RNA sequence: UUUAUCGUGAGAUAUGCACUGAAGGAAGCAGGACUACAAAAUCCGGUACUGACGAACAGAAAUGUCAUAAGAGGCAAUUUAAAGCGGAUAAGCGUCCACAGCAACGCAACGUCCAAAGAAUACCAAACUUUAAUUUGUAGAUGACGCAGGCAUUGGAGGAAGGAAAAAGCGGU
Numbered sequence: 001u002u003u004a005u006c007g008u009g010a011g012a013u014a015u016g017c018a019c020u021g022a023a024g025g026a027a028g029c030a031g032g033a034c035u036a037c038a039a040a041a042u043c044c045g046g047u048a049c050u051g052a053c054g055a056a057c058a059g060a061a062a063u064g065u066c067a068u069a070a071g072a073g074g075c076a077a078u079u080u081a082a083a084g085c086g087g088a089u090a091a092g093c094g095u096c097c098a099c100a101g102c103a104a105c106g107c108a109a110c111g112u113c114c115a116a117a118g119a120a121u122a123c124c125a126a127a128c129u130u131u132a133a134u135u136u137g138u139a140g141a142u143g144a145c146g147c148a149g150g151c152a153u154u155g156g157a158g159g160a161a162g163g164a165a166a167a168a169g170c171g172g173u
Stems, first nucleotide, its partner, number of pairs: 001016001003014004028173002031170001037163001042157005049149003063146006074138003079133006086114004092107004
A member of the RNA family "Group II catalytic intron D1-D4-3" from Flavobacterium piscinae, 173 nucleotides long. The organism belongs to Flavobacterium, within Bacteria. Group II introns are found in rRNA, tRNA and mRNA of organelles in fungi, plants and protists, and also in mRNA in bacteria.